Shown here is a 106-nucleotide RNA from Canis lupus, a member of the family "mir-8834 microRNA precursor family". NCBI's taxonomy places the organism under Eukaryota, Amniota, Boreoeutheria, Carnivora, Canis lupus. Pairs were carried over by alignment from the consensus structure, which was predicted with RNAalifold. It scores 49 bits against the family's covariance model.
RNA sequence: AGGAGGAACAACCGCAGUGGCGGCGGCCAGCUCUGGAGCCCUAGAGUCAGCUCCCGCAGUAACCACAGAGCUCUCCGUCUGCAGGGCCUGCCGGCUCCCGGGGACG
Number, nucleotide and partner (000 for none) at each position: 001a000002g098003g097004a096005g095006g000007a000008a000009c090010a089011a000012c086013c085014g000015c000016a000017g000018u000019g079020g078021c077022g076023g075024c000025g074026g073027c000028c000029a072030g071031c070032u069033c068034u067035g066036g000037a000038g000039c000040c000041c059042u058043a000044g000045a000046g000047u000048c000049a000050g000051c000052u000053c000054c000055c000056g000057c000058a042059g041060u000061a000062a000063c000064c000065a000066c035067a034068g033069a032070g031071c030072u029073c026074u025075c023076c022077g021078u020079c019080u000081g000082c000083a000084g000085g013086g012087c000088c000089u010090g009091c000092c000093g000094g000095c005096u004097c003098c002099c000100g000101g000102g000103g000104a000105c000106g000